[Rfam]
The record is a 106-nucleotide sequence from Canis lupus, which matches "mir-8834 microRNA precursor family" in Rfam. The source organism's lineage runs through Eukaryota, Opisthokonta, Chordata, Eutheria and Canis lupus.

RNA sequence: AGGAGGAACAACCACAGUGGCAGCGGCCAGCUCUGGAGCCCAGGAUUCAGCUCCUGCAGUAACUCCGGAGCUCUCCAUAUGCAGGGCCUGGAGGCUCUGGGGGCAA
Numbered sequence: 001a002g003g004a005g006g007a008a009c010a011a012c013c014a015c016a017g018u019g020g021c022a023g024c025g026g027c028c029a030g031c032u033c034u035g036g037a038g039c040c041c042a043g044g045a046u047u048c049a050g051c052u053c054c055u056g057c058a059g060u061a062a063c064u065c066c067g068g069a070g071c072u073c074u075c076c077a078u079a080u081g082c083a084g085g086g087c088c089u090g091g092a093g094g095c096u097c098u099g100g101g102g103g104c105a106a
Base pairs, nucleotide, nucleotide: 002098003097004096005095009090010089012086013085020078023075025074026073029072030071031070032069033068034067035066036065037064041059043057